[Rfam]
RNA sequence: UUGACAGAAGAGAGUGAGCACUCAUGGUCUUUUCCUGCGUUCAUCAAGGGUUUAAUGCUAGAAGCUAUGGGUGCUCACUUCUCUCUCUGUCAA
Numbered sequence: 001u002u003g004a005c006a007g008a009a010g011a012g013a014g015u016g017a018g019c020a021c022u023c024a025u026g027g028u029c030u031u032u033u034c035c036u037g038c039g040u041u042c043a044u045c046a047a048g049g050g051u052u053u054a055a056u057g058c059u060a061g062a063a064g065c066u067a068u069g070g071g072u073g074c075u076c077a078c079u080u081c082u083c084u085c086u087c088u089g090u091c092a093a
Stems, first nucleotide, its partner, number of pairs: 001093008010083003013079009023069005